[Rfam]
RNA sequence: UAACUCAAUGCCAAACCUGUCGCGAGGCAGGGACGGAAAGCUACGGGGCUUAUAAGCUAGCCGGGUUGCAUCUU
Dot-bracket structure: ..(.......((...((((((....))))))..[))..((((.((((((......))).])))))))...)...
Numbered sequence: 001u002a003a004c005u006c007a008a009u010g011c012c013a014a015a016c017c018u019g020u021c022g023c024g025a026g027g028c029a030g031g032g033a034c035g036g037a038a039a040g041c042u043a044c045g046g047g048g049c050u051u052a053u054a055a056g057c058u059a060g061c062c063g064g065g066u067u068g069c070a071u072c073u074u
Stems, first nucleotide, its partner, number of pairs: 003071001011036002016031006034060001039067004044063003047058003
The family of this 74-nucleotide RNA from Desulfopila aestuarii is "c-di-GMP-I-GGC riboswitch aptamer". The family's consensus secondary structure is taken from published work. It scores 60 bits against the family's covariance model.